Shown here is a 143-nucleotide RNA from Populus tomentosa, a member of the family "MIR480 microRNA precursor family". The base pairs follow the family's consensus structure, which was predicted with WAR. Taxonomically the source falls in Populus (Eukaryota, Gunneridae, rosids, Salicaceae).
RNA sequence: AUCUUUUGUUAGCUAUCCACAUAGUCUGUUUAUGGUAGAUCUCCAUCUAAAUACUAAAAACCUUUAGUUUUCACAAGCUUAACCACAUCAUUCUUCGAGUUAUGUUCCUCCAAAUAAGGUUUUAAGUGUUGCACAUUAAAAGU
Numbered sequence: 001a002u003c004u005u006u007u008g009u010u011a012g013c014u015a016u017c018c019a020c021a022u023a024g025u026c027u028g029u030u031u032a033u034g035g036u037a038g039a040u041c042u043c044c045a046u047c048u049a050a051a052u053a054c055u056a057a058a059a060a061c062c063u064u065u066a067g068u069u070u071u072c073a074c075a076a077g078c079u080u081a082a083c084c085a086c087a088u089c090a091u092u093c094u095u096c097g098a099g100u101u102a103u104g105u106u107c108c109u110c111c112a113a114a115u116a117a118g119g120u121u122u123u124a125a126g127u128g129u130u131g132c133a134c135a136u137u138a139a140a141a142g143u
Stems, first nucleotide, its partner, number of pairs: 003142003006138001012132002018128002023121003027116005